[Rfam]
RNA sequence: AAACUCAUUAACUUAAAUCACACACAUAUCGUUCGGGUAAAUCGGGGUGCCAAACGGUCGAUUUGCUUGAUAUGUGGAGGCAAAAC
Numbered sequence: 001a002a003a004c005u006c007a008u009u010a011a012c013u014u015a016a017a018u019c020a021c022a023c024a025c026a027u028a029u030c031g032u033u034c035g036g037g038u039a040a041a042u043c044g045g046g047g048u049g050c051c052a053a054a055c056g057g058u059c060g061a062u063u064u065g066c067u068u069g070a071u072a073u074g075u076g077g078a079g080g081c082a083a084a085a086c
Stems, first nucleotide, its partner, number of pairs: 023076008036067009049058003
The record is an 86-nucleotide RNA sequence from [Mannheimia] succiniciproducens, which matches "t44 RNA" in Rfam. From the family's description: This family consists of a number of bacterial RNA genes of between 135 and 170 bases in length. The t44 gene has been identified in several species of enteric bacteria but homologs have also been identified in Pseudomonas and Coxiella species. The t44 gene is found between the map and rpsB genes in all species in the full alignment apart from Shigella flexneri. Rfam classes the family as a small RNA. The base pairs follow the family's consensus structure, which was predicted with LocARNA. A search with the family's covariance model found it, with a score of 59 bits.